[Rfam]
RNA: Vault RNA
Organism: Anabarilius grahami
RNA sequence: GCGUUGGUUUAGCUCAGUGGUUACUUCCGAUGACUCAAAAAUCAACCCUCUCACGGCCGCUGGGCCACCGGUGACCGGAGAUCGAACCACGGGCGCUGUCCAACGUUAUA
Numbered sequence: 001g002c003g004u005u006g007g008u009u010u011a012g013c014u015c016a017g018u019g020g021u022u023a024c025u026u027c028c029g030a031u032g033a034c035u036c037a038a039a040a041a042u043c044a045a046c047c048c049u050c051u052c053a054c055g056g057c058c059g060c061u062g063g064g065c066c067a068c069c070g071g072u073g074a075c076c077g078g079a080g081a082u083c084g085a086a087c088c089a090c091g092g093g094c095g096c097u098g099u100c101c102a103a104c105g106u107u108a109u110a
Stems, first nucleotide, its partner, number of pairs: 002105006012094004017090004025080005
Dot-bracket structure: .((((((....((((.((((....(((((..............................................)))))......)))))))).....)))))).....